[Rfam]
RNA sequence: UAUGAGUCUAGUGGAAACACUUCUGCACAAACUGGAUUAUGGACACCAGUGUGCAGAAAUGCUUCUGCUACUUUACUA
Numbered sequence: 001u002a003u004g005a006g007u008c009u010a011g012u013g014g015a016a017a018c019a020c021u022u023c024u025g026c027a028c029a030a031a032c033u034g035g036a037u038u039a040u041g042g043a044c045a046c047c048a049g050u051g052u053g054c055a056g057a058a059a060u061g062c063u064u065c066u067g068c069u070a071c072u073u074u075a076c077u078a
Base pairs, nucleotide, nucleotide: 001078002077005074006073009070010069011068012067013066014065015064016063018061019060021058022057023056024055025054026053027052028051029050032049033048
The family of this 78-nucleotide sequence from Molossus molossus is "mir-147 microRNA precursor family". It scores 83 bits against the family's covariance model. The family's consensus secondary structure was predicted with RNAalifold. Its family is annotated with miRNA-mediated post-transcriptional gene silencing and RISC complex in the Gene Ontology. On this family, see Kawaji et al., BMC Genomics 2008: "Hidden layers of human small RNAs".